[Rfam]
RNA sequence: UACUACCAAACCCUGUCUCUACCUCCCCGUGGUGAUCGCUGAGAGUUCUUUCUUAAUGAAAAACUUCAGAGGGAGAGGG
Numbered sequence: 001u002a003c004u005a006c007c008a009a010a011c012c013c014u015g016u017c018u019c020u021a022c023c024u025c026c027c028c029g030u031g032g033u034g035a036u037c038g039c040u041g042a043g044a045g046u047u048c049u050u051u052c053u054u055a056a057u058g059a060a061a062a063a064c065u066u067c068a069g070a071g072g073g074a075g076a077g078g079g
Stems, first nucleotide, its partner, number of pairs: 012079003016075001018073003021033003043066005049060002052058001

Shown here is a 79-nucleotide sequence from Hermetia illucens, a member of the family "drz-agam-1 ribozyme".
The organism belongs to Hermetia, within Eukaryota.
The literature on the family includes a 2009 paper in Science by Webb et al., "Widespread occurrence of self-cleaving ribozymes".
The match comes from Rfam's covariance-model search (39 bits).